The family of this 76-nucleotide RNA sequence from Cetobacterium ceti is "Fluoride riboswitch aptamer (crcB RNA motif)". The match comes from Rfam's covariance-model search (51 bits). On this family, see Baker et al., Science 2012: "Widespread genetic switches and toxicity resistance proteins for fluoride". Pairs were carried over by alignment from the consensus structure, which is taken from published work.
RNA sequence: UAAUAAAGAGGGAAUGAAGUUCUCCCUUAGUUUUGCAACUAAAACCGCUUAUUUAGCUGAUGACUUCUACGACUUU
Numbered sequence: 001u002a003a004u005a006a007a008g009a010g011g012g013a014a015u016g017a018a019g020u021u022c023u024c025c026c027u028u029a030g031u032u033u034u035g036c037a038a039c040u041a042a043a044a045c046c047g048c049u050u051a052u053u054u055a056g057c058u059g060a061u062g063a064c065u066u067c068u069a070c071g072a073c074u075u076u
Stems, first nucleotide, its partner, number of pairs: 010026004016067006047057003